Shown here is an 88-nucleotide RNA from Hypsibius exemplaris, a member of the family "mir-7 microRNA precursor family".
The family has 132 seed sequences and 2,589 matches in Rfam 15.1.
The base pairs follow the family's consensus structure, which was predicted with PFOLD.
Lineage of the source: Eukaryota > Opisthokonta > Metazoa > Ecdysozoa > Hypsibius.
This family represents the microRNA (miRNA) precursor mir-7.
RNA sequence: AGAACUGUCACCGACUGGAAGACUAGUGAUUUUUUUGUUGUGCUCACGACUAACAAGAAAUCACUUUGUUUCCUGCCGGUGCUUUUCU
Numbered sequence: 001a002g003a004a005c006u007g008u009c010a011c012c013g014a015c016u017g018g019a020a021g022a023c024u025a026g027u028g029a030u031u032u033u034u035u036u037g038u039u040g041u042g043c044u045c046a047c048g049a050c051u052a053a054c055a056a057g058a059a060a061u062c063a064c065u066u067u068g069u070u071u072c073c074u075g076c077c078g079g080u081g082c083u084u085u086u087c088u
Base pairs, nucleotide, nucleotide: 002087003086004085009081011079012078013077015075017073018072020071021070022069023068026064027063028062029061030060031059032058034057035056036055037054038053039052